[Rfam]
A member of the RNA family "Small nucleolar RNA Z103" from Nelumbo nucifera, 102 nucleotides long. Rfam links the family to the GO terms RNA processing and nucleolus. The match comes from Rfam's covariance-model search (94 bits). A reference for the family is Chen et al. (2003), "The high diversity of snoRNAs in plants: identification and comparative study of 120 snoRNA genes from Oryza sativa", Nucleic Acids Res. By type it is a C/D-box small nucleolar RNA. The base pairs follow the family's consensus structure, which was predicted with PFOLD.
RNA sequence: AUGGAAAGGAUGAGCCUUUCCCCAGAUGAUCGACACUGAUUAUACUGAGCUUUUUAUCAAAUUUUCUCUUUGGAGAAAAUGCAAGCCAGGAAUCUGAUCCAU
Numbered sequence: 001a002u003g004g005a006a007a008g009g010a011u012g013a014g015c016c017u018u019u020c021c022c023c024a025g026a027u028g029a030u031c032g033a034c035a036c037u038g039a040u041u042a043u044a045c046u047g048a049g050c051u052u053u054u055u056a057u058c059a060a061a062u063u064u065u066c067u068c069u070u071u072g073g074a075g076a077a078a079a080u081g082c083a084a085g086c087c088a089g090g091a092a093u094c095u096g097a098u099c100c101a102u
Stems, first nucleotide, its partner, number of pairs: 001102005